[Rfam]
RNA sequence: GUCAAUAAGGAAAGCAGGAAAGAUCGGGUGAAGCGAGAGGGCUACGUAACAAGUAACAUGGCAGUUAGGCUACGGUACCUGGUAGACAGAGUUACGUGUAUGACAAACAUGACCCGGCAAAGCAGUUGAAGAAAGCAGGAACAUCAGGACACUGACGCAGAGUGUGUACCACUGGGUACUGAGGGCAAGCCAAUUGCCACGUUAUUCCUAUAACAAGAAGGUGUUAAGCGGAAGAAUCAACGAGCGAGAGGACACAGUACCUUGUUGAC
Number, nucleotide and partner (000 for none) at each position: 001g269002u268003c267004a266005a265006u264007a263008a262009g261010g260011a000012a000013a000014g000015c000016a000017g000018g000019a000020a000021a000022g000023a000024u117025c116026g115027g114028g113029u112030g000031a000032a000033g000034c000035g000036a000037g000038a000039g000040g000041g000042c000043u000044a000045c096046g095047u094048a093049a092050c091051a000052a000053g000054u067055a066056a065057c064058a000059u000060g000061g000062c000063a000064g057065u056066u055067a054068g000069g000070c085071u084072a083073c082074g000075g000076u000077a000078c000079c000080u000081g000082g073083u072084a071085g070086a000087c000088a000089g000090a000091g050092u049093u048094a047095c046096g045097u000098g000099u000100a000101u000102g000103a000104c000105a000106a000107a000108c000109a000110u000111g000112a029113c028114c027115c026116g025117g024118c000119a000120a000121a000122g000123c000124a000125g241126u240127u239128g238129a237130a000131g000132a000133a000134a000135g229136c228137a000138g000139g000140a225141a224142c223143a222144u221145c220146a209147g208148g207149a206150c000151a000152c000153u000154g203155a202156c201157g200158c000159a000160g000161a000162g000163u182164g000165u000166g179167u178168a177169c176170c000171a000172c000173u000174g000175g000176g169177u168178a167179c166180u000181g000182a163183g000184g198185g197186c196187a195188a194189g000190c000191c000192a000193a000194u188195u187196g186197c185198c184199a000200c157201g156202u155203u154204a000205u000206u149207c148208c147209u146210a000211u000212a000213a000214c000215a000216a000217g000218a000219a000220g145221g144222u143223g142224u141225u140226a000227a000228g136229c135230g000231g000232a000233a000234g000235a000236a000237u129238c128239a127240a126241c125242g000243a000244g000245c000246g000247a000248g000249a000250g000251g000252a000253c000254a000255c000256a000257g000258u000259a000260c010261c009262u008263u007264g006265u005266u004267g003268a002269c001
Rfam assigns this 269-nucleotide sequence to the family "RAGATH-8 RNA". Its family is annotated with catalytic activity in the Gene Ontology. The literature on the family includes a 2015 paper in Nat Chem Biol by Weinberg et al., "New classes of self-cleaving ribozymes revealed by comparative genomics analysis".